[Rfam]
RNA sequence: CGUUUGUUAAUAAGCGGUUUCUUACUGAAAAUGUCUGAACAUGUGAAUUCCAUAGUGAUUUCAGUGCAUUACUGAGAUAAGCU
Numbered sequence: 001c002g003u004u005u006g007u008u009a010a011u012a013a014g015c016g017g018u019u020u021c022u023u024a025c026u027g028a029a030a031a032u033g034u035c036u037g038a039a040c041a042u043g044u045g046a047a048u049u050c051c052a053u054a055g056u057g058a059u060u061u062c063a064g065u066g067c068a069u070u071a072c073u074g075a076g077a078u079a080a081g082c083u
Stems, first nucleotide, its partner, number of pairs: 002082007